The record is a 307-nucleotide sequence from Brassica cretica, which matches "Plant signal recognition particle RNA" in Rfam. A reference for the family is Wild et al. (2002), "Towards the structure of the mammalian signal recognition particle", Curr Opin Struct Biol. The family has 63 seed sequences and 4,988 matches in Rfam 15.1.
RNA sequence: GUCGAGCUUAGUAAAGCAGGCUUAUGAUCCAACUGGAGACAACAAAGUUAUGGGACAUUGGGCUGAUCUUUUUGGGCCGGAUUCGGAUGGGCUGUCUACUGGCCUGCCCAUUCCAAGUCGGGAGUUGAGUGUUUGGACUCGAGCGAAGGCUUGCGGUUUGAACGCUCUUAGAGCGAAGGAGACUGCGUGAGGCUGGUUUCACAGAGCAGUGUCCACCUCCCGCUUUCGACGGUGGAAGGAUUACGGGCCGGUGCCUUCCGAGCCCACUAUGACCCAAUAAGCCUGCUCCAACUGGACCAUCACUUUU
Numbered sequence: 001g002u003c004g005a006g007c008u009u010a011g012u013a014a015a016g017c018a019g020g021c022u023u024a025u026g027a028u029c030c031a032a033c034u035g036g037a038g039a040c041a042a043c044a045a046a047g048u049u050a051u052g053g054g055a056c057a058u059u060g061g062g063c064u065g066a067u068c069u070u071u072u073u074g075g076g077c078c079g080g081a082u083u084c085g086g087a088u089g090g091g092c093u094g095u096c097u098a099c100u101g102g103c104c105u106g107c108c109c110a111u112u113c114c115a116a117g118u119c120g121g122g123a124g125u126u127g128a129g130u131g132u133u134u135g136g137a138c139u140c141g142a143g144c145g146a147a148g149g150c151u152u153g154c155g156g157u158u159u160g161a162a163c164g165c166u167c168u169u170a171g172a173g174c175g176a177a178g179g180a181g182a183c184u185g186c187g188u189g190a191g192g193c194u195g196g197u198u199u200c201a202c203a204g205a206g207c208a209g210u211g212u213c214c215a216c217c218u219c220c221c222g223c224u225u226u227c228g229a230c231g232g233u234g235g236a237a238g239g240a241u242u243a244c245g246g247g248c249c250g251g252u253g254c255c256u257u258c259c260g261a262g263c264c265c266a267c268u269a270u271g272a273c274c275c276a277a278u279a280a281g282c283c284u285g286c287u288c289c290a291a292c293u294g295g296a297c298c299a300u301c302a303c304u305u306u307u
Base pairs, nucleotide, nucleotide: 001040002039003038004023005022006021007020008019009018028037029036030035044306045305046304047303048302050300051299052298053297056294057293058291059290060289061287062286063285065283068281069280070279072277073276075274076273078271079265080264082262083261084260085259086258087257089256090255091254093253094252099251100250101249102248103247104246105245106244108239109238111237112236113235114234115233117230118229119228120227121226122225123224124223125222127167128166129165130164131163132162133161134160135159136158137157138156139155140153141152142151143150144149168173175220177218178217179216185212186211187210188209193204194203195202

NCBI's taxonomy places the organism under Eukaryota, Euphyllophyta, Gunneridae, Brassiceae, Brassica. The family's RNA type in Rfam is non-coding RNA gene.